[Rfam]
Overview:
Shown here is an 82-nucleotide sequence from Rhodanobacter sp. OK091, a member of the family "tRNA".
RNA sequence: GCCCAGGUGGCGGAACUGGUAGACGCACUACCUUGAGGUGGUAGCGACGUAAGUCGUAGGGGUUCGAGUCCCCUCUUGGGCA
Numbered sequence: 001g002c003c004c005a006g007g008u009g010g011c012g013g014a015a016c017u018g019g020u021a022g023a024c025g026c027a028c029u030a031c032c033u034u035g036a037g038g039u040g041g042u043a044g045c046g047a048c049g050u051a052a053g054u055c056g057u058a059g060g061g062g063u064u065c066g067a068g069u070c071c072c073c074u075c076u077u078g079g080g081c082a
Base pairs, nucleotide, nucleotide: 001081002080003079004078005077006076007075010026011025012024028044029043030042031041032040058074059073060072061071062070

The family's RNA type in Rfam is transfer RNA. Taxonomically the source falls in Rhodanobacter (Bacteria, Pseudomonadota, Gammaproteobacteria, Lysobacterales).